Actino-pnp RNA: a 59-nucleotide RNA from Mycobacterium sp. ACS1612. It scores 57 bits against the family's covariance model. NCBI's taxonomy places the organism under Bacteria, Actinomycetota, Actinomycetes, Mycobacteriales, Mycobacterium. Rfam classes the family as a cis-regulatory element.
RNA sequence: CGCGGUCUUCGGUAGUGGCUGCCGGGUGCCAAUCCCGACAGCUUCGAUCGAUGGCCGUA
Numbered sequence: 001c002g003c004g005g006u007c008u009u010c011g012g013u014a015g016u017g018g019c020u021g022c023c024g025g026g027u028g029c030c031a032a033u034c035c036c037g038a039c040a041g042c043u044u045c046g047a048u049c050g051a052u053g054g055c056c057g058u059a
Stems, first nucleotide, its partner, number of pairs: 002058006009051005017043005023037004